[Rfam]
RNA sequence: UGUUUGACGAGGAAUGAAGUUCUCCUCGGGCUUUUGCCGAAACCGCUUUUUUAAGCUGAUGACUUCUGCGAAAUC
Numbered sequence: 001u002g003u004u005u006g007a008c009g010a011g012g013a014a015u016g017a018a019g020u021u022c023u024c025c026u027c028g029g030g031c032u033u034u035u036g037c038c039g040a041a042a043c044c045g046c047u048u049u050u051u052u053a054a055g056c057u058g059a060u061g062a063c064u065u066c067u068g069c070g071a072a073a074u075c
Stems, first nucleotide, its partner, number of pairs: 010026004016066006045056004
This 75-nucleotide RNA sequence from Candidatus Borkfalkia ceftriaxoniphila belongs to the Rfam family "Fluoride riboswitch aptamer (crcB RNA motif)". A search with the family's covariance model found it, with a score of 43 bits. Pairs were carried over by alignment from the consensus structure, which is taken from published work. The source organism's lineage runs through Bacteria, Bacillota, Clostridia, Christensenellaceae and Candidatus Borkfalkia.